[Rfam]
RNA sequence: UGGAUCAAUGAUGAUUUCCGGUCAUCAUUAUGAGUGGUAUAUGGUGACUAUACCAAUAUAUUCUGGAACUCUGGAACUCUGAGGAACUCUGAGGUCCAA
Numbered sequence: 001u002g003g004a005u006c007a008a009u010g011a012u013g014a015u016u017u018c019c020g021g022u023c024a025u026c027a028u029u030a031u032g033a034g035u036g037g038u039a040u041a042u043g044g045u046g047a048c049u050a051u052a053c054c055a056a057u058a059u060a061u062u063c064u065g066g067a068a069c070u071c072u073g074g075a076a077c078u079c080u081g082a083g084g085a086a087c088u089c090u091g092a093g094g095u096c097c098a099a
Stems, first nucleotide, its partner, number of pairs: 002097005
A member of the RNA family "Small nucleolar RNA SNORD113/SNORD114 family" from Balaenoptera musculus, 99 nucleotides long. Clan: SNORD74 clan. The family's consensus secondary structure is taken from published work. The imprinted human domain at 14q32 contains two clusters of tandemly repeated small nucleolar RNAs named 14q(I) and 14q(II) snoRNAs. These two clusters are named SNORD113 and SNORD114 respectively in the HGNC approved gene symbol nomenclature. The snoRNAs found in both clusters are clearly related and are represented here by a single family. These snoRNAs are intron encoded and are processed from the tissue-specific non-coding human MEG8 RNA, which lies downstream of the imprinted genes DLK1 and GTL2. snoRNAs 14q(I) and 14q(II) differ from previously identified C/D box snoRNAs in their expression profiles and lack of complementarity to rRNA and snRNA. Homologues of these snoRNAs are found in the imprinted non-coding mouse transcript Rian, and in the rat non-coding Bsr (brain-specific repetitive) RNA. The organism belongs to Balaenoptera, within Eukaryota.